[Rfam]
RNA sequence: GAUAGAGAUGUAGAGCUCCCUUCAAUCCAAACAAGGAUCAAACUAUAGUUGAUCCAGGCUCCUGAGCUAUGCAUCCCACAAACAUAUCCAAGACAAUAUGGACAGGAUAGGAUUGUGGUAUCCAUAGCAUAGCAGCUCAAUCCAACUCAGCAAGACCCACUAUUGGACUUGAAGGAGCUCCACUUCUUUAACGC
Numbered sequence: 001g002a003u004a005g006a007g008a009u010g011u012a013g014a015g016c017u018c019c020c021u022u023c024a025a026u027c028c029a030a031a032c033a034a035g036g037a038u039c040a041a042a043c044u045a046u047a048g049u050u051g052a053u054c055c056a057g058g059c060u061c062c063u064g065a066g067c068u069a070u071g072c073a074u075c076c077c078a079c080a081a082a083c084a085u086a087u088c089c090a091a092g093a094c095a096a097u098a099u100g101g102a103c104a105g106g107a108u109a110g111g112a113u114u115g116u117g118g119u120a121u122c123c124a125u126a127g128c129a130u131a132g133c134a135g136c137u138c139a140a141u142c143c144a145a146c147u148c149a150g151c152a153a154g155a156c157c158c159a160c161u162a163u164u165g166g167a168c169u170u171g172a173a174g175g176a177g178c179u180c181c182a183c184u185u186c187u188u189u190a191a192c193g194c
Stems, first nucleotide, its partner, number of pairs: 013180006020174001023171003026167004036157001059135002062132003068126004076118001
Background:
The record is a 194-nucleotide RNA from Tripterygium wilfordii, which matches "MIR159 microRNA precursor family" in Rfam. The match comes from Rfam's covariance-model search (79 bits). Gene Ontology terms of the family: RISC complex and miRNA-mediated post-transcriptional gene silencing. Pairs were carried over by alignment from the consensus structure, which was predicted with WAR. Taxonomically the source falls in Tripterygium (Eukaryota, Embryophyta, fabids, Celastrales).